Metazoan signal recognition particle RNA: a 307-nucleotide sequence from Oryctolagus cuniculus. The literature on the family includes a 2002 paper in Curr Opin Struct Biol by Wild et al., "Towards the structure of the mammalian signal recognition particle". Gene Ontology terms of the family: signal recognition particle, endoplasmic reticulum targeting and SRP-dependent cotranslational protein targeting to membrane, signal sequence recognition. A search with the family's covariance model found it, with a score of 168 bits. The base pairs follow the family's consensus structure, which is taken from published work. Rfam classes the family as a non-coding RNA gene.

RNA sequence: GCCGGCGCGGUGACGCGUGCCUGUAGUCCCAGCUACUCGGGAGGCUGAGGCCGGAGGAUCGCUUGAGUCCAGGAGUUCUGGGCUGUUGUGCGCUAUGCCGAUCGGGUGUCCGCACUAAGUUCGGCAUCAAUAUGGUGACCUCCCCGGAGCGGGGGACCACCAGGUUGCCUAAGGAGGGGUGAACCGGCCCAGGUCGGACACGGAGCAGGUCAAAACUCCCGUGCUGAUCAGAAAUGCGAUUACACCAAGAUCCACAUUCAUGGCCACGGCAGCUGCCCAGAUGGCAGGGCACAGAACAGCACCUUCU
Numbered sequence: 001g002c003c004g005g006c007g008c009g010g011u012g013a014c015g016c017g018u019g020c021c022u023g024u025a026g027u028c029c030c031a032g033c034u035a036c037u038c039g040g041g042a043g044g045c046u047g048a049g050g051c052c053g054g055a056g057g058a059u060c061g062c063u064u065g066a067g068u069c070c071a072g073g074a075g076u077u078c079u080g081g082g083c084u085g086u087u088g089u090g091c092g093c094u095a096u097g098c099c100g101a102u103c104g105g106g107u108g109u110c111c112g113c114a115c116u117a118a119g120u121u122c123g124g125c126a127u128c129a130a131u132a133u134g135g136u137g138a139c140c141u142c143c144c145c146g147g148a149g150c151g152g153g154g155g156a157c158c159a160c161c162a163g164g165u166u167g168c169c170u171a172a173g174g175a176g177g178g179g180u181g182a183a184c185c186g187g188c189c190c191a192g193g194u195c196g197g198a199c200a201c202g203g204a205g206c207a208g209g210u211c212a213a214a215a216c217u218c219c220c221g222u223g224c225u226g227a228u229c230a231g232a233a234a235u236g237c238g239a240u241u242a243c244a245c246c247a248a249g250a251u252c253c254a255c256a257u258u259c260a261u262g263g264c265c266a267c268g269g270c271a272g273c274u275g276c277c278c279a280g281a282u283g284g285c286a287g288g289g290c291a292c293a294g295a296a297c298a299g300c301a302c303c304u305u306c307u
Base pairs, nucleotide, nucleotide: 001045002044003043004021005020006019007018008017009016027042028041029040049307050306053303054302056300062299063298065292067290068289069288070287072285078280079279080278081277082276083275085273086269087268088267089266090265092264093263094262095261096260097259102249105246106245107244108243109242110238113236114235116233119229121227122226123225124224125223126222127221128167129166130165131164133162134161135160136159137158140155141154142153143152144151168174169173176219177218178217179216180215186211187210188209189208194203195202196201
Dot-bracket structure: (((((((((......)))))).....(((..........))))))...((..((.(.....((.(.((((.(.....((((((.((((((.((((((....(..((((((..((.(..(.(((((((((((.(((((..(((((......)))))..))))).))))((...)).(((((.....((((....(((....)))....))))...))))).))))))).)...).)).)...)))))..).........)))))))))))...).))))))....).)))).).....))).))..))